[Rfam]
Shown here is a 76-nucleotide RNA from Laticauda laticaudata, a member of the family "Mammalian CPEB3 ribozyme". Rfam 15.1 lists 5,706 matches to the family in 197 species. Rfam's curators write: The mammalian CPEB3 ribozyme is a self cleaving RNA located in the second intron of the CPEB3 gene which belongs to a family of genes regulating messenger RNA polyadenylation.
RNA sequence: GGUGUUUAACUUGUUCAUAGAAGGAGCGUUCACGUCGCGGCCCCUGUCAGGUAUCUGUUUACCUGCAAAUCCUUCU
Numbered sequence: 001g002g003u004g005u006u007u008a009a010c011u012u013g014u015u016c017a018u019a020g021a022a023g024g025a026g027c028g029u030u031c032a033c034g035u036c037g038c039g040g041c042c043c044c045u046g047u048c049a050g051g052u053a054u055c056u057g058u059u060u061a062c063c064u065g066c067a068a069a070u071c072c073u074u075c076u
Base pairs, nucleotide, nucleotide: 013042015040016039019076020075021074022073023072024071025070026038027037028036048065049064050063051062052061053060
The base pairs follow the family's consensus structure, which is taken from published work. Lineage of the source: Eukaryota > Bilateria > Sauropsida > Laticaudinae > Laticauda.